[Rfam]
The record is a 585-nucleotide part of an RNA from Kroppenstedtia eburnea, which matches "Bacterial small subunit ribosomal RNA" in Rfam. The match comes from Rfam's covariance-model search (1588 bits). On this family, see Yusupov et al., Science 2001: "Crystal structure of the ribosome at 5.5 A resolution". The base pairs follow the family's consensus structure, which is taken from published work. The family is grouped with related families in Rfam's "SSU clan". The source organism's lineage runs through Bacteria, Bacillati, Bacilli, Thermoactinomycetaceae and Kroppenstedtia.

RNA sequence: UGACGGGGGCCCGCACAAGCGGUGGAGCAUGUGGUUUAAUUCGAAGCAACGCGAAGAACCUUACCAGGGCUUGACAUCCCGCUGACCGGUGCAGAGAUGCACCUUCCCUUCGGGGCAGCGGUGACAGGUGGUGCAUGGUUGUCGUCAGCUCGUGUCGUGAGAUGUUGGGUUCAGUCCCGCAACGAGCGCAACCCUUGUCGUCAGUUGCCAGCACAUGAUGGUGGGCACUCUGGCGAGACAGCCGGUGAAAGCCGGAGGAAGGUGGGGAUGACGUCAAAUCAUCAUGCCCCUUAUGUCCUGGGCUACACACGUGCUACAAUGGCCGGUACAACGGGCAGCGAACCCGUGAGGGGGAGCCAAUCCCAAAAAACCGGUCUCAGUUCGGAUCGCAGGCUGCAACUCGCCUGCGUGAAGCUGGAAUCGCUAGUAAUCGCGGAUCAGCAUGCCGCGGUGAAUCCGUUCCCGGGCCUUGUACACACCGCCCGUCACACCACGAGAGUCUGCAACACCCGAAGUCGGUGAGGUAACCUUCGGGAACCAGCCGCCGAAGGUGGGGCAGAUGAUUGGGGUGAAGUCGUAACAAGG
Numbered sequence: 001u002g003a004c005g006g007g008g009g010c011c012c013g014c015a016c017a018a019g020c021g022g023u024g025g026a027g028c029a030u031g032u033g034g035u036u037u038a039a040u041u042c043g044a045a046g047c048a049a050c051g052c053g054a055a056g057a058a059c060c061u062u063a064c065c066a067g068g069g070c071u072u073g074a075c076a077u078c079c080c081g082c083u084g085a086c087c088g089g090u091g092c093a094g095a096g097a098u099g100c101a102c103c104u105u106c107c108c109u110u111c112g113g114g115g116c117a118g119c120g121g122u123g124a125c126a127g128g129u130g131g132u133g134c135a136u137g138g139u140u141g142u143c144g145u146c147a148g149c150u151c152g153u154g155u156c157g158u159g160a161g162a163u164g165u166u167g168g169g170u171u172c173a174g175u176c177c178c179g180c181a182a183c184g185a186g187c188g189c190a191a192c193c194c195u196u197g198u199c200g201u202c203a204g205u206u207g208c209c210a211g212c213a214c215a216u217g218a219u220g221g222u223g224g225g226c227a228c229u230c231u232g233g234c235g236a237g238a239c240a241g242c243c244g245g246u247g248a249a250a251g252c253c254g255g256a257g258g259a260a261g262g263u264g265g266g267g268a269u270g271a272c273g274u275c276a277a278a279u280c281a282u283c284a285u286g287c288c289c290c291u292u293a294u295g296u297c298c299u300g301g302g303c304u305a306c307a308c309a310c311g312u313g314c315u316a317c318a319a320u321g322g323c324c325g326g327u328a329c330a331a332c333g334g335g336c337a338g339c340g341a342a343c344c345c346g347u348g349a350g351g352g353g354g355a356g357c358c359a360a361u362c363c364c365a366a367a368a369a370a371c372c373g374g375u376c377u378c379a380g381u382u383c384g385g386a387u388c389g390c391a392g393g394c395u396g397c398a399a400c401u402c403g404c405c406u407g408c409g410u411g412a413a414g415c416u417g418g419a420a421u422c423g424c425u426a427g428u429a430a431u432c433g434c435g436g437a438u439c440a441g442c443a444u445g446c447c448g449c450g451g452u453g454a455a456u457c458c459g460u461u462c463c464c465g466g467g468c469c470u471u472g473u474a475c476a477c478a479c480c481g482c483c484c485g486u487c488a489c490a491c492c493a494c495g496a497g498a499g500u501c502u503g504c505a506a507c508a509c510c511c512g513a514a515g516u517c518g519g520u521g522a523g524g525u526a527a528c529c530u531u532c533g534g535g536a537a538c539c540a541g542c543c544g545c546c547g548a549a550g551g552u553g554g555g556g557c558a559g560a561u562g563a564u565u566g567g568g569g570u571g572a573a574g575u576c577g578u579a580a581c582a583a584g585g
Base pairs, nucleotide, nucleotide: 001476002475003473004472005471007470008469009468010467011466012465013464015460016459019424020423021422022421023420024317026315027314028313029312030311031310032309033308034306035305040055041054042053043052064301065300066299067298068297069296070295077124078123079121080120081119082118083117088103089102090101091100092099093098106115107114108113127290128289130288131287132286133285136284137283138279139278140277141275143273144272148187149186150185151184152183153182154163155162156161166179167178168177169176193267194266195265196264198236199235200234201233202232203231204230208225209224212223213222214221239258242255243254244253245252246251321376322375323374324373325372326371327370333364334363335362338357339356343352344351345350383414388409389408390407391406392405393404394403430452431451432450433449434448435447436446479584481581484577485576489571490570491569492568494566495565496564499561500560501559502558503557504556507553508552509551510550515546517544518543519542520541523539524538525537528535529534